[Rfam]
Notes
The record is a 72-nucleotide sequence from Desulfuromonas sp. AOP6, which matches "tRNA" in Rfam. Lineage of the source: Bacteria > Pseudomonadati > Thermodesulfobacteriota > Desulfuromonadia > Desulfuromonas.

RNA sequence: GCCGCCCUAGCUCAGAGGUAGAGCAACGCACUCGUAAUGCGUAGGUCAUCGGUUCAACUCCGAUGGGCGGCU
Numbered sequence: 001g002c003c004g005c006c007c008u009a010g011c012u013c014a015g016a017g018g019u020a021g022a023g024c025a026a027c028g029c030a031c032u033c034g035u036a037a038u039g040c041g042u043a044g045g046u047c048a049u050c051g052g053u054u055c056a057a058c059u060c061c062g063a064u065g066g067g068c069g070g071c072u
Stems, first nucleotide, its partner, number of pairs: 001071007010024004026042005048064005
Dot-bracket structure: (((((((..((((.......)))).(((((.......))))).....(((((.......)))))))))))).